[Rfam]
RNA sequence: AACUCGAUCGGAUCGACCGAGCGGGUCACCACCAGGUAGUCGCGGAUGGCGAUGCCGUGGCGGUUUUC
Numbered sequence: 001a002a003c004u005c006g007a008u009c010g011g012a013u014c015g016a017c018c019g020a021g022c023g024g025g026u027c028a029c030c031a032c033c034a035g036g037u038a039g040u041c042g043c044g045g046a047u048g049g050c051g052a053u054g055c056c057g058u059g060g061c062g063g064u065u066u067u068c
Stems, first nucleotide, its partner, number of pairs: 004063003008059001011030001013028001015027004035056004040052004